This 244-nucleotide RNA from Citrus unshiu belongs to the Rfam family "RNase MRP". Pairs were carried over by alignment from the consensus structure, which is taken from published work. Rfam 15.1 lists 3,510 matches to the family in 2,315 species.

RNA sequence: AACUCGCAAGAUAAUGUGGUUGGGUCGAGCACAAUCGUUCGGGCUCAGGAAAGUCCCCGGGCCAUCUUAUGCUGAGAAGCAUCCUUGGUAACAAGAGAGCCAUGACUCGGAGAUUCUUCUCGCACUUGUGCGAGCGGCUGAGACGCGUGUGGAGCCGCCGAGUUUCCUCAUGGUAUUUGGCCGAUUACACAGUUAUCCACAUGCUUUCAUAAAGCAACUGAACGGGGCUUACAAUCUUGCGGGU
Numbered sequence: 001a002a003c004u005c006g007c008a009a010g011a012u013a014a015u016g017u018g019g020u021u022g023g024g025u026c027g028a029g030c031a032c033a034a035u036c037g038u039u040c041g042g043g044c045u046c047a048g049g050a051a052a053g054u055c056c057c058c059g060g061g062c063c064a065u066c067u068u069a070u071g072c073u074g075a076g077a078a079g080c081a082u083c084c085u086u087g088g089u090a091a092c093a094a095g096a097g098a099g100c101c102a103u104g105a106c107u108c109g110g111a112g113a114u115u116c117u118u119c120u121c122g123c124a125c126u127u128g129u130g131c132g133a134g135c136g137g138c139u140g141a142g143a144c145g146c147g148u149g150u151g152g153a154g155c156c157g158c159c160g161a162g163u164u165u166c167c168u169c170a171u172g173g174u175a176u177u178u179g180g181c182c183g184a185u186u187a188c189a190c191a192g193u194u195a196u197c198c199a200c201a202u203g204c205u206u207u208c209a210u211a212a213a214g215c216a217a218c219u220g221a222a223c224g225g226g227g228c229u230u231a232c233a234a235u236c237u238u239g240c241g242g243g244u
Stems, first nucleotide, its partner, number of pairs: 002244010014202006021047006051230003055227004070081004082097001084095004099174003109169002112166002124163004135157004145150001204214004